The record is a 79-nucleotide RNA from Rattus norvegicus, which matches "mir-542 microRNA precursor family" in Rfam. Pairs were carried over by alignment from the consensus structure, which was predicted with RNAalifold. Gene Ontology terms of the family: miRNA-mediated post-transcriptional gene silencing and RISC complex.
RNA sequence: UCUCAGACGUCUCGGGGAUCAUCAUGUCACGAGAUACCACUGCGCACUUGUGACAGAUUGAUAACUGAAAGGUCUGGGA
Numbered sequence: 001u002c003u004c005a006g007a008c009g010u011c012u013c014g015g016g017g018a019u020c021a022u023c024a025u026g027u028c029a030c031g032a033g034a035u036a037c038c039a040c041u042g043c044g045c046a047c048u049u050g051u052g053a054c055a056g057a058u059u060g061a062u063a064a065c066u067g068a069a070a071g072g073u074c075u076g077g078g079a
Stems, first nucleotide, its partner, number of pairs: 002078007012068004018062004025055009
Dot-bracket structure: .(((((((...((((..((((...(((((((((.............)))))))))...))))..))))...))))))).